[Rfam]
RNA sequence: ACUCAACUUCGGGGCAGGGUGUAAAUCCCGACCGGCGGUGAUAAGGCAAUCGCCUUUUAGUCCGUGACCCGCAUAAGCAUUACUCGUGCGUGCGGUGGAUCUGGUGCAAAUCCAGAGCCGACAGUAAUAGUCUGGAUGGGAGAAGUUCGAG
Numbered sequence: 001a002c003u004c005a006a007c008u009u010c011g012g013g014g015c016a017g018g019g020u021g022u023a024a025a026u027c028c029c030g031a032c033c034g035g036c037g038g039u040g041a042u043a044a045g046g047c048a049a050u051c052g053c054c055u056u057u058u059a060g061u062c063c064g065u066g067a068c069c070c071g072c073a074u075a076a077g078c079a080u081u082a083c084u085c086g087u088g089c090g091u092g093c094g095g096u097g098g099a100u101c102u103g104g105u106g107c108a109a110a111u112c113c114a115g116a117g118c119c120g121a122c123a124g125u126a127a128u129a130g131u132c133u134g135g136a137u138g139g140g141a142g143a144a145g146u147u148c149g150a151g
Base pairs, nucleotide, nucleotide: 003149005147006146007145008144009143010142017029018028019027031131032130033120034119035065036064037063038062060118061117069095070094071093072092073091100116101115102114103113104112122134123133124132
Overview:
Rfam assigns this 151-nucleotide sequence from Shouchella clausii to the family "FMN riboswitch aptamer (RFN element)". Lineage of the source: Bacteria > Bacillati > Bacillota > Bacilli > Shouchella clausii. It is one of the family's seed sequences.